The record is a 53-nucleotide RNA sequence, which matches "Glutamine riboswitch aptamer (glnA leader)" in Rfam. Pairs were carried over by alignment from the consensus structure, which is taken from published work.
RNA sequence: AUCGUUCAUCUAUUCAUAGACGGAAGUAGGUAAUACAACCGAAGGAACGCAUC
Numbered sequence: 001a002u003c004g005u006u007c008a009u010c011u012a013u014u015c016a017u018a019g020a021c022g023g024a025a026g027u028a029g030g031u032a033a034u035a036c037a038a039c040c041g042a043a044g045g046a047a048c049g050c051a052u053c
Stems, first nucleotide, its partner, number of pairs: 003049005009020004023050001029040003